Description:
A member of the RNA family "TPP riboswitch aptamer (THI element)" from Halothermothrix orenii, 110 nucleotides long.

[Rfam]
RNA sequence: UAUUAAAAUUUGGGGAGCUUCGGCUGAGAGAGGCUGAGAGGAUGCUAGAGCAUCGACCCAUUGAACCUGACCCGGGUAAUUCCGGCGUAGGGAAAAUAAGAUGAACUGUA
Numbered sequence: 001u002a003u004u005a006a007a008a009u010u011u012g013g014g015g016a017g018c019u020u021c022g023g024c025u026g027a028g029a030g031a032g033g034c035u036g037a038g039a040g041g042a043u044g045c046u047a048g049a050g051c052a053u054c055g056a057c058c059c060a061u062u063g064a065a066c067c068u069g070a071c072c073c074g075g076g077u078a079a080u081u082c083c084g085g086c087g088u089a090g091g092g093a094a095a096a097u098a099a100g101a102u103g104a105a106c107u108g109u110a
Stems, first nucleotide, its partner, number of pairs: 007097001009095002011060004017034005041054005066091004072085004

Taxonomically the source falls in Halothermothrix orenii (Bacteria, Bacillati, Bacillota, Clostridia).
Vitamin B(1) in its active form thiamin pyrophosphate (TPP) is an essential coenzyme that is synthesised by coupling of pyrimidine and thiazole moieties in bacteria.